[Rfam]
RNA: U5 spliceosomal RNA
RNA sequence: AGCUGCGCAGUGGGCACAGAGCGAACUAUUCUUUCGCCUUUUACUAAAGAAUACCGUGUGCCCGCUGCAAUAAGCAGCAUACUCAAAUUUUUGGAGGGUUCCCUCUCUGAGGGGUCC
Numbered sequence: 001a002g003c004u005g006c007g008c009a010g011u012g013g014g015c016a017c018a019g020a021g022c023g024a025a026c027u028a029u030u031c032u033u034u035c036g037c038c039u040u041u042u043a044c045u046a047a048a049g050a051a052u053a054c055c056g057u058g059u060g061c062c063c064g065c066u067g068c069a070a071u072a073a074g075c076a077g078c079a080u081a082c083u084c085a086a087a088u089u090u091u092u093g094g095a096g097g098g099u100u101c102c103c104u105c106u107c108u109g110a111g112g113g114g115u116c117c
Stems, first nucleotide, its partner, number of pairs: 003077004008067011027053008098116001100114004